[Rfam]
RNA: L31-Firmicutes ribosomal protein leader
RNA sequence: CUAUGGUUUUUAAGCCAUGGCGGAAGGAG
Numbered sequence: 001c002u003a004u005g006g007u008u009u010u011u012a013a014g015c016c017a018u019g020g021c022g023g024a025a026g027g028a029g
Stems, first nucleotide, its partner, number of pairs: 001020008